Overview: Shown here is a 583-nucleotide part of an RNA from Candidatus Methanogaster sp., a member of the family "Archaeal large subunit ribosomal RNA". Taxonomically the source falls in Candidatus Methanogaster (Archaea, Methanomicrobia, Methanosarcinales, ANME-2 cluster). The family's consensus secondary structure is taken from published work. It scores 2941 bits against the family's covariance model. Clan: LSU clan.
RNA sequence: CCCCUAAUGGGAAGUGAAGACCCCGUGGAGCUUUACUGCAGCCUGUCGCUGGGUCUCGAUUCUGGAUGUGAAGGAUAGGUAGGAGGCAUCGAAGCGCUCUCGCCAGGGAGCGUGGAGCCAACCUUGGGAUACUACCCUUUCAGAAUUGCGGCUCUUACCCUCCGUCCGGAGGGGACCCCGAUAGGUAGGCAGUUUGGGUGGGGCGCCACGCCCUCGAAAAGGUAUCAAGGGUGCCCUAAGGUCGACUCAUCAGGGUCGGAAAUCCUGAGAAGAGUGCAAGAGCAUAAGUCGGCCUGACGUGAUUUCGCAAAGCAGGGAAUCGCGAGACGAAAGUCGGGUCUAGCGAACCUACGUCGUUUCUUGAUGGAACUCGUAGACGACAGAAAAGCUACCCCGGGGAUAACAGAGUCGUCACCGGCAAGAGUACAUAUCGACCCGGUGGCUUGCUACCUCGAUGUCGGUUCUUUCCAUCCUGGCUGUGCAGCAGCAGCCAAGGGUGAGGUUGUUCGCCUAUUAAAGGAGAUCGUGAGCUGGGUUUAGACCGUCGUGAGACAGGUCGGUUACUAUCUAUUAGGGGUGUUUU
Numbered sequence: 001c002c003c004c005u006a007a008u009g010g011g012a013a014g015u016g017a018a019g020a021c022c023c024c025g026u027g028g029a030g031c032u033u034u035a036c037u038g039c040a041g042c043c044u045g046u047c048g049c050u051g052g053g054u055c056u057c058g059a060u061u062c063u064g065g066a067u068g069u070g071a072a073g074g075a076u077a078g079g080u081a082g083g084a085g086g087c088a089u090c091g092a093a094g095c096g097c098u099c100u101c102g103c104c105a106g107g108g109a110g111c112g113u114g115g116a117g118c119c120a121a122c123c124u125u126g127g128g129a130u131a132c133u134a135c136c137c138u139u140u141c142a143g144a145a146u147u148g149c150g151g152c153u154c155u156u157a158c159c160c161u162c163c164g165u166c167c168g169g170a171g172g173g174g175a176c177c178c179c180g181a182u183a184g185g186u187a188g189g190c191a192g193u194u195u196g197g198g199u200g201g202g203g204c205g206c207c208a209c210g211c212c213c214u215c216g217a218a219a220a221g222g223u224a225u226c227a228a229g230g231g232u233g234c235c236c237u238a239a240g241g242u243c244g245a246c247u248c249a250u251c252a253g254g255g256u257c258g259g260a261a262a263u264c265c266u267g268a269g270a271a272g273a274g275u276g277c278a279a280g281a282g283c284a285u286a287a288g289u290c291g292g293c294c295u296g297a298c299g300u301g302a303u304u305u306c307g308c309a310a311a312g313c314a315g316g317g318a319a320u321c322g323c324g325a326g327a328c329g330a331a332a333g334u335c336g337g338g339u340c341u342a343g344c345g346a347a348c349c350u351a352c353g354u355c356g357u358u359u360c361u362u363g364a365u366g367g368a369a370c371u372c373g374u375a376g377a378c379g380a381c382a383g384a385a386a387a388g389c390u391a392c393c394c395c396g397g398g399g400a401u402a403a404c405a406g407a408g409u410c411g412u413c414a415c416c417g418g419c420a421a422g423a424g425u426a427c428a429u430a431u432c433g434a435c436c437c438g439g440u441g442g443c444u445u446g447c448u449a450c451c452u453c454g455a456u457g458u459c460g461g462u463u464c465u466u467u468c469c470a471u472c473c474u475g476g477c478u479g480u481g482c483a484g485c486a487g488c489a490g491c492c493a494a495g496g497g498u499g500a501g502g503u504u505g506u507u508c509g510c511c512u513a514u515u516a517a518a519g520g521a522g523a524u525c526g527u528g529a530g531c532u533g534g535g536u537u538u539a540g541a542c543c544g545u546c547g548u549g550a551g552a553c554a555g556g557u558c559g560g561u562u563a564c565u566a567u568c569u570a571u572u573a574g575g576g577g578u579g580u581u582u583u
Stems, first nucleotide, its partner, number of pairs: 001577008010569003014564002022398004027394002029390005035193004042185007051154005057148010068137001078136005085119003097110005158173004196209001197207003210232005235338002241293006247273002250268006274283002298324009326335001328333001349376005356370004407448003411445001412442007422432002459534001460532004464526001465523005472497002476491005500512004540558004544553003